The family of this 79-nucleotide RNA sequence from Flavobacterium sp. A45 is "Flavo-1 RNA". NCBI's taxonomy places the organism under Bacteria, Bacteroidota, Flavobacteriia, Flavobacteriales, Flavobacterium. By type it is a small RNA. The base pairs follow the family's consensus structure, which is taken from published work. It scores 80 bits against the family's covariance model.

RNA sequence: AACUAGCCCUGAUAGAAGUGGAAAUCCUUUACUUUUUUCUUUUAAAAAGUAAAGAUUACAACGGAUAGCAGGAAUAGCU
Numbered sequence: 001a002a003c004u005a006g007c008c009c010u011g012a013u014a015g016a017a018g019u020g021g022a023a024a025u026c027c028u029u030u031a032c033u034u035u036u037u038u039c040u041u042u043u044a045a046a047a048a049g050u051a052a053a054g055a056u057u058a059c060a061a062c063g064g065a066u067a068g069c070a071g072g073a074a075u076a077g078c079u
Base pairs, nucleotide, nucleotide: 009071010070011069013067014066018062019061023057024056025055026054029052030051031050032049033048034047035046036045